[Rfam]
RNA sequence: GAUGAAAAAGCCAAACCUGCCGCGAGACAGGGACGGAAAGCCACGGGUUUCGGGAGAAACAGCCGGGUUGCCUUGG
Numbered sequence: 001g002a003u004g005a006a007a008a009a010g011c012c013a014a015a016c017c018u019g020c021c022g023c024g025a026g027a028c029a030g031g032g033a034c035g036g037a038a039a040g041c042c043a044c045g046g047g048u049u050u051c052g053g054g055a056g057a058a059a060c061a062g063c064c065g066g067g068u069u070g071c072c073u074u075g076g
Stems, first nucleotide, its partner, number of pairs: 004072001011036002016031004021026001034062001039069004044065003047060003
Overview: The record is a 76-nucleotide sequence from Desulfonema ishimotonii, which matches "c-di-GMP-I-GGC riboswitch aptamer" in Rfam. It scores 67 bits against the family's covariance model. The family's consensus secondary structure is taken from published work. Taxonomically the source falls in Desulfonema (Bacteria, Pseudomonadati, Thermodesulfobacteriota, Desulfococcaceae).